[Rfam]
This 79-nucleotide RNA sequence from Mesocricetus auratus belongs to the Rfam family "Small nucleolar RNA SNORD115". Lineage of the source: Eukaryota > Tetrapoda > Muroidea > Cricetidae > Mesocricetus. Gene Ontology terms of the family: RNA processing and nucleolus. The family's RNA type in Rfam is C/D-box small nucleolar RNA.
RNA sequence: GGGUCUCUGAUGACAAACCAAUGUCAUGAAGAGAAGUGAUAACAUAAUAAUCAUGCUCAAUAGGACUUUGCUGAUGUGC
Numbered sequence: 001g002g003g004u005c006u007c008u009g010a011u012g013a014c015a016a017a018c019c020a021a022u023g024u025c026a027u028g029a030a031g032a033g034a035a036g037u038g039a040u041a042a043c044a045u046a047a048u049a050a051u052c053a054u055g056c057u058c059a060a061u062a063g064g065a066c067u068u069u070g071c072u073g074a075u076g077u078g079c
Stems, first nucleotide, its partner, number of pairs: 001079001003077002005073001008070002

The base pairs follow the family's consensus structure, which was predicted with PFOLD.